[Rfam]
RNA: U4 spliceosomal RNA
Organism: Elysia chlorotica
RNA sequence: AGCUUUGCGCAGUGGCGGUACCAUAGUCAAUGAGGUUUUACCGAGACGUGGUUAUUGCUAGUUGAAAACUACUCCCAAUACCCCGCACAGACGUCUCUCACGGGACGGCUAGUGCAAUUUUUUAAAGCUUCUACGGAAG
Numbered sequence: 001a002g003c004u005u006u007g008c009g010c011a012g013u014g015g016c017g018g019u020a021c022c023a024u025a026g027u028c029a030a031u032g033a034g035g036u037u038u039u040a041c042c043g044a045g046a047c048g049u050g051g052u053u054a055u056u057g058c059u060a061g062u063u064g065a066a067a068a069c070u071a072c073u074c075c076c077a078a079u080a081c082c083c084c085g086c087a088c089a090g091a092c093g094u095c096u097c098u099c100a101c102g103g104g105a106c107g108g109c110u111a112g113u114g115c116a117a118u119u120u121u122u123u124a125a126a127g128c129u130u131c132u133a134c135g136g137a138a139g
Stems, first nucleotide, its partner, number of pairs: 020052005026047003034042003085115003089110002092107006128139004
Dot-bracket structure: ...................(((((.(((.....(((...)))..))))))))................................(((.((.((((((....)))))).))..)))............((((....))))